RNA sequence: CUGAAGGCCGCGUUCGGGUCAAUUGCGGACUGCAACACCCGAUCUCCCUUCGCCUGCCCCCCGGACGGGAGGCGACGGAGGGGGAGCGCGUCACCGUCAG
Numbered sequence: 001c002u003g004a005a006g007g008c009c010g011c012g013u014u015c016g017g018g019u020c021a022a023u024u025g026c027g028g029a030c031u032g033c034a035a036c037a038c039c040c041g042a043u044c045u046c047c048c049u050u051c052g053c054c055u056g057c058c059c060c061c062c063g064g065a066c067g068g069g070a071g072g073c074g075a076c077g078g079a080g081g082g083g084g085a086g087c088g089c090g091u092c093a094c095c096g097u098c099a100g
Base pairs, nucleotide, nucleotide: 001100002099003098004097009090010089011088012087013086015041016040017039018038023035024034025033026032027031043085044084045083046082047081048080049079050078051077052076
Overview: The record is a 100-nucleotide RNA sequence from Halorarum salinum, which matches "L4-Archaeoglobi ribosomal protein leades" in Rfam. The source organism's lineage runs through Archaea, Methanobacteriati, Halobacteria, Haloferacaceae and Halorarum. It is annotated as a cis-regulatory leader.